RNA sequence: AUCAAAAUUGUGGGAAUUAAUAAUGAAUAAAACAACAGUUAAGGGCUAAAUUCUCAUUCUUGUUGUUGACUUCAUUUGCUAUCCUGACAACCUAUUGAAUGUUAUUUCUACUAUUUUGUUCAUAUUCCAAGGUGUAUUGCCACUUUCAAGCUAUUAGUGCGGACGGGAUAACCCCCCGUC
Numbered sequence: 001a002u003c004a005a006a007a008u009u010g011u012g013g014g015a016a017u018u019a020a021u022a023a024u025g026a027a028u029a030a031a032a033c034a035a036c037a038g039u040u041a042a043g044g045g046c047u048a049a050a051u052u053c054u055c056a057u058u059c060u061u062g063u064u065g066u067u068g069a070c071u072u073c074a075u076u077u078g079c080u081a082u083c084c085u086g087a088c089a090a091c092c093u094a095u096u097g098a099a100u101g102u103u104a105u106u107u108c109u110a111c112u113a114u115u116u117u118g119u120u121c122a123u124a125u126u127c128c129a130a131g132g133u134g135u136a137u138u139g140c141c142a143c144u145u146u147c148a149a150g151c152u153a154u155u156a157g158u159g160c161g162g163a164c165g166g167g168a169u170a171a172c173c174c175c176c177c178g179u180c
Base pairs, nucleotide, nucleotide: 001114002113006109008090009089010088012085013084014083015082022076023075024074025073026072027071029067030066032064036062037061038060041057043055122155124152126150129146130145131144132143133142134141162180163179164178165177166176167175